The record is a 75-nucleotide RNA sequence, which matches "L13-Bacteroidia ribosomal protein leader" in Rfam.
[Rfam]
RNA sequence: GGGGAGAGUCUUAGAAUCCCCGCCGGUCCCGUGUAAAUAGUCGUGCCUUUGGCCGGACGUGACGGUUUGUGAAUC
Numbered sequence: 001g002g003g004g005a006g007a008g009u010c011u012u013a014g015a016a017u018c019c020c021c022g023c024c025g026g027u028c029c030c031g032u033g034u035a036a037a038u039a040g041u042c043g044u045g046c047c048u049u050u051g052g053c054c055g056g057a058c059g060u061g062a063c064g065g066u067u068u069g070u071g072a073a074u075c
Stems, first nucleotide, its partner, number of pairs: 001021005034069005040063006047056002

The sequence is in the family's curated seed alignment.
Pairs were carried over by alignment from the consensus structure, which is taken from published work.